[Rfam]
RNA: Bacteroidetes FopS (family of paralogous sRNAs)
RNA sequence: GUGGUUUUUUCAUAAUAGUAUUAGAUUUAAGGUUAACAAGGGCGCGAGGGUUGUCGGGAGACAGCCCUCGGCUUUUUUAUG
Numbered sequence: 001g002u003g004g005u006u007u008u009u010u011c012a013u014a015a016u017a018g019u020a021u022u023a024g025a026u027u028u029a030a031g032g033u034u035a036a037c038a039a040g041g042g043c044g045c046g047a048g049g050g051u052u053g054u055c056g057g058g059a060g061a062c063a064g065c066c067c068u069c070g071g072c073u074u075u076u077u078u079a080u081g
Stems, first nucleotide, its partner, number of pairs: 049066007
Dot-bracket structure: ................................................(((((((....)))))))...............